[Rfam]
TPP riboswitch aptamer (THI element): a 103-nucleotide RNA sequence from Cryobacterium psychrophilum. The match comes from Rfam's covariance-model search (67 bits). Taxonomically the source falls in Cryobacterium (Bacteria, Bacillati, Micrococcales, Microbacteriaceae). About the family: Vitamin B(1) in its active form thiamin pyrophosphate (TPP) is an essential coenzyme that is synthesised by coupling of pyrimidine and thiazole moieties in bacteria.
Nucleotides: 103
Stems, first nucleotide, its partner, number of pairs: 006091005011053004016047001017039005059084003065078004
Number, partner (000 for none) and nucleotide at each position: 001000g002000u003000g004000a005000g006091u007090g008089a009088c010087a011053c012052g013051g014050g015000g016047u017039g018038c019037c020036c021035a022000g023000g024000c025000u026000g027000u028000a029000u030000g031000a032000c033000g034000c035021u036020g037019g038018g039017c040000u041000g042000a043000g044000a045000u046000g047016a048000c049000a050014c051013c052012c053011g054000u055000u056000g057000a058000a059084c060083c061082u062000g063000a064000u065078c066077u067076a068075g069000u070000u071000c072000g073000a074000a075068c076067u077066a078065g079000c080000g081000a082061a083060g084059g085000g086000a087010u088009g089008u090007c091006a092000g093000u094000g095000g096000a097000g098000g099000c100000u101000u102000g103000c